[Rfam]
RNA: c-di-GMP-I riboswitch aptamer
Organism: Alkalibaculum bacchi
RNA sequence: AAAAGAAAAAGGCAAACCUAAUGAAAGUUUGGGACGCAAAGCUAUGAGUCUAAGGCAAUGAAAAUUGCUAUGACAGUCAAGCCGCCAGA
Numbered sequence: 001a002a003a004a005g006a007a008a009a010a011g012g013c014a015a016a017c018c019u020a021a022u023g024a025a026a027g028u029u030u031g032g033g034a035c036g037c038a039a040a041g042c043u044a045u046g047a048g049u050c051u052a053a054g055g056c057a058a059u060g061a062a063a064a065u066u067g068c069u070a071u072g073a074c075a076g077u078c079a080a081g082c083c084g085c086c087a088g089a
Stems, first nucleotide, its partner, number of pairs: 012037002017032002020029003041082003045079003048074003055068004